Shown here is a 111-nucleotide RNA sequence from Medicago truncatula, a member of the family "MIR2593 microRNA precursor family". The family's consensus secondary structure was predicted with RNAalifold.

[Rfam]
Nucleotides: 111
Stems, first nucleotide, its partner, number of pairs: 002110006009103005015097002020094005026088018048066004
Number, partner (000 for none) and nucleotide at each position: 001000a002110u003109a004108u005107a006106a007105g008000c009103a010102a011101a012100u013099u014000u015097u016096a017000c018000u019000u020094u021093u022092u023091a024090g025000a026088u027087u028086c029085a030084u031083u032082c033081a034080a035079u036078u037077a038076a039075u040074g041073a042072u043071g044000u045000a046000u047000g048066u049065g050064g051063u052000u053000u054000a055000u056000a057000a058000u059000a060000u061000g062000g063051a064050c065049c066048a067000c068000a069000u070000a071043c072042a073041u074040c075039a076038u077037u078036a079035a080034u081033u082032g083031a084030a085029u086028g087027a088026a089000c090024c091023u092022a093021a094020a095000g096016u097015a098000a099013a100012a101011u102010u103009u104000g105007c106006u107005u108004a109003u110002a111000u